[Rfam]
RNA sequence: AUGCCAUCAAGAGCGGCUGAGAGACCUGGAUCGAGGACGCCGCAGCAACCACGCACCCCCACAGGGACCGGCGCAGGUGCUACCGCCAGGAACGAUGGAAG
Dot-bracket structure: .(.(((((....(((((...((...[[[[.))......)))))((((.((.(((................)))..))))))...(]]]]...)))))).).